[Rfam]
RNA sequence: GAAUCGAGCCAGGCCGCCGCUGGCACCUCUCGAGGGGCUGGAGGAAGGUCCGGACUGCACAGGGCGGCGUAGCAGCUAACGGCUGUCCACCGCGAGGUGAGGAUCAGAGCAACAGAGACGAGUCGGCGCCGGUCGCAAGGCCGCUGCCGGGUGAAACGGGCAAUCUCUACGCGCAGCAAUACCAAAUAGGCCGGCGCUGCGGCUUCGUGCCGCUGAAGUGUGGCUCCGCACGAGCCGGCGGGUAGGUAGCACCGAGCCGCGUAGCGAUGCGCGGCCCAGAGGAAUGGCGGCCACGGCGGCGACCGGCGACGGGAGCCGCCGCACAGAAUCCGGCCUAUCGGCUCGCUUCACGA
Number, nucleotide and partner (000 for none) at each position: 001g349002a348003a347004u000005c345006g344007a343008g342009c341010c340011a338012g292013g291014c290015c289016g288017c287018c286019g000020c041021u040022g039023g038024c037025a000026c035027c034028u033029c000030u000031c000032g000033a028034g027035g026036g000037g024038c023039u022040g021041g020042a000043g000044g000045a000046a336047g335048g334049u000050c333051c332052g331053g330054a329055c176056u175057g174058c173059a000060c000061a000062g226063g225064g224065c223066g000067g172068c171069g170070u169071a168072g086073c085074a084075g083076c082077u000078a000079a000080c000081g000082g076083c075084u074085g073086u072087c101088c099089a098090c097091c096092g000093c000094g000095a000096g091097g090098u089099g088100a000101g087102g167103a166104u000105c000106a000107g165108a164109g161110c160111a000112a000113c000114a000115g000116a000117g000118a000119c000120g000121a000122g000123u000124c150125g000126g147127c146128g145129c000130c143131g142132g141133u140134c139135g000136c000137a000138a000139g134140g133141c132142c131143g130144c000145u128146g127147c126148c000149g000150g124151g000152u000153g000154a000155a000156a000157c000158g000159g000160g110161c109162a000163a000164u108165c107166u103167c102168u071169a070170c069171g068172c067173g058174c057175a056176g055177c000178a000179a000180u248181a247182c246183c245184a000185a000186a000187u000188a000189g000190g239191c238192c237193g236194g235195c234196g000197c000198u000199g000200c000201g000202g000203c000204u000205u000206c000207g000208u000209g000210c000211c000212g000213c000214u000215g000216a000217a000218g231219u230220g229221u228222g000223g065224c064225u063226c062227c000228g221229c220230a219231c218232g000233a000234g195235c194236c193237g192238g191239c190240g000241g000242g000243u000244a000245g183246g182247u181248a180249g000250c000251a000252c000253c000254g000255a000256g275257c274258c273259g272260c271261g270262u269263a268264g000265c000266g000267a000268u263269g262270c261271g260272c259273g258274g257275c256276c000277c000278a000279g000280a000281g000282g000283a000284a000285u000286g018287g017288c016289g015290g014291c013292c012293a000294c000295g000296g000297c000298g000299g000300c000301g000302a000303c000304c000305g000306g000307c000308g000309a000310c000311g000312g000313g000314a000315g000316c000317c000318g000319c000320c000321g000322c000323a000324c000325a000326g000327a000328a000329u054330c053331c052332g051333g050334c048335c047336u046337a000338u011339c000340g010341g009342c008343u007344c006345g005346c000347u003348u002349c001350a000351c000352g000353a000
About this RNA:
Rfam assigns this 353-nucleotide RNA from Rhizobacter koreensis to the family "Bacterial RNase P class A". NCBI's taxonomy places the organism under Bacteria, Pseudomonadati, Burkholderiales, Sphaerotilaceae, Rhizobacter. It is annotated as a ribozyme.